[Rfam]
RNA sequence: UUAUAAGCAAAAAAUCACUUUUUAGAUUCAUUGGAAAACCGAUGUAUCUAGACUACAUUAUAGACUAGAUGCAUCAGUUUUUCAAUGAACCUAAAAAGUGAUCUUUUGCUUAUAA
Numbered sequence: 001u002u003a004u005a006a007g008c009a010a011a012a013a014a015u016c017a018c019u020u021u022u023u024a025g026a027u028u029c030a031u032u033g034g035a036a037a038a039c040c041g042a043u044g045u046a047u048c049u050a051g052a053c054u055a056c057a058u059u060a061u062a063g064a065c066u067a068g069a070u071g072c073a074u075c076a077g078u079u080u081u082u083c084a085a086u087g088a089a090c091c092u093a094a095a096a097a098g099u100g101a102u103c104u105u106u107u108g109c110u111u112a113u114a115a
Base pairs, nucleotide, nucleotide: 002114003113004112005111006110007109009107010106011105012104015101016100017099018098019097020096021095022094023093024092025091027089028088029087030086031085032084033083034082035081036080037079038078039077041075042074043073044072049067050066051065
The record is a 115-nucleotide RNA sequence from Trifolium medium, which matches "MIR2593 microRNA precursor family" in Rfam. Lineage of the source: Eukaryota > Spermatophyta > Fabales > Hologalegina > Trifolium.